Shown here is a 248-nucleotide RNA sequence from Psylliodes chrysocephalus, a member of the family "RNase MRP".
The organism belongs to Psylliodes, within Eukaryota.
The literature on the family includes a 2002 paper in RNA by Li et al., "Phylogenetic analysis of the structure of RNase MRP RNA in yeasts".
The family's RNA type in Rfam is ribozyme.
The match comes from Rfam's covariance-model search (90 bits).

[Rfam]
RNA sequence: GAAUCCUUUCAAGUCAGACGGGCGGGGUCACAUACAGAGCUCUCGUAGUUCACUCGUACCCUGGGAAAGGUCCCUGGAUCUCUGGUAGAAAGUACCGCCAGGUAUGUCACUGGUUAGCCGCAGCCGCCGCCAAGUCAAGAUGGGAUAUGAUCGGCGGCUUGGUAUGGCUGCGGUGUUGGUCAAAGCAAAGAUAUGUUUGGAGUCCUUCCUUGGGAGGAUUACAAAACAGGGCCUACUCUGAAUGGAUU
Numbered sequence: 001g002a003a004u005c006c007u008u009u010c011a012a013g014u015c016a017g018a019c020g021g022g023c024g025g026g027g028u029c030a031c032a033u034a035c036a037g038a039g040c041u042c043u044c045g046u047a048g049u050u051c052a053c054u055c056g057u058a059c060c061c062u063g064g065g066a067a068a069g070g071u072c073c074c075u076g077g078a079u080c081u082c083u084g085g086u087a088g089a090a091a092g093u094a095c096c097g098c099c100a101g102g103u104a105u106g107u108c109a110c111u112g113g114u115u116a117g118c119c120g121c122a123g124c125c126g127c128c129g130c131c132a133a134g135u136c137a138a139g140a141u142g143g144g145a146u147a148u149g150a151u152c153g154g155c156g157g158c159u160u161g162g163u164a165u166g167g168c169u170g171c172g173g174u175g176u177u178g179g180u181c182a183a184a185g186c187a188a189a190g191a192u193a194u195g196u197u198u199g200g201a202g203u204c205c206u207u208c209c210u211u212g213g214g215a216g217g218a219u220u221a222c223a224a225a226a227c228a229g230g231g232c233c234u235a236c237u238c239u240g241a242a243u244g245g246a247u248u
Stems, first nucleotide, its partner, number of pairs: 002248005008242004014200006023063006037051005068234003072231004084096004097108001099106002110173003116169005123163004127157004202219006